[Rfam]
RNA sequence: AAACGUUAAGGGCAAACCCGGCGAAAGCCGGCGACGCAAAGCUACAGGGGCUAAAGCCGUAAGGCUAUGCCAGCCAGCUGCCAAA
Numbered sequence: 001a002a003a004c005g006u007u008a009a010g011g012g013c014a015a016a017c018c019c020g021g022c023g024a025a026a027g028c029c030g031g032c033g034a035c036g037c038a039a040a041g042c043u044a045c046a047g048g049g050g051c052u053a054a055a056g057c058c059g060u061a062a063g064g065c066u067a068u069g070c071c072a073g074c075c076a077g078c079u080g081c082c083a084a085a
Base pairs, nucleotide, nucleotide: 012037013036018031019030020029021028022027040079041078042077043076047075048074049071050070051069056065057064058063

Rfam assigns this 85-nucleotide RNA from Carboxydothermus hydrogenoformans to the family "c-di-GMP-I riboswitch aptamer".